[Rfam]
RNA: Lysine riboswitch aptamer
RNA sequence: CGAUGAGGUAGAGGUCGCGGUUUUUAAUAGUAAAGCGAAGAAGAUGCAGAGAACAUUGAGGAAUUCGUUUGAAAGGAAAAAUCGCCGAAGUUUAUUUCACUUCUCUGAUGAAAUAAGCUGGGGCUGUAUCCAAAUAGGAACAGAACUGUCACAUGAGUCCUUACCAGACACGUGUGAAGUGCUAUCUUCAUG
Number, nucleotide and partner (000 for none) at each position: 001c000002g000003a000004u000005g000006a187007g186008g185009u184010a183011g182012a000013g000014g000015u000016c000017g085018c084019g083020g082021u081022u080023u079024u078025u077026a000027a000028u000029a000030g000031u000032a000033a070034a069035g068036c067037g066038a065039a064040g000041a000042a000043g000044a000045u000046g000047c000048a000049g000050a000051g000052a000053a000054c000055a000056u000057u000058g000059a000060g000061g000062a000063a000064u039065u038066c037067g036068u035069u034070u033071g000072a000073a000074a000075g000076g000077a025078a024079a023080a022081a021082u020083c019084g018085c017086c000087g000088a000089a119090g118091u117092u116093u115094a114095u113096u112097u111098c110099a109100c000101u000102u000103c000104u000105c000106u000107g000108a000109u099110g098111a097112a096113a095114u094115a093116a092117g091118c090119u089120g147121g146122g000123g000124c143125u142126g141127u140128a000129u138130c137131c000132a000133a000134a000135u000136a000137g130138g129139a000140a127141c126142a125143g124144a000145a000146c121147u120148g000149u177150c176151a175152c174153a173154u172155g171156a000157g000158u000159c000160c000161u000162u000163a000164c000165c000166a000167g000168a000169c000170a000171c155172g154173u153174g152175u151176g150177a149178a000179g000180u000181g000182c011183u010184a009185u008186c007187u006188u000189c000190a000191u000192g000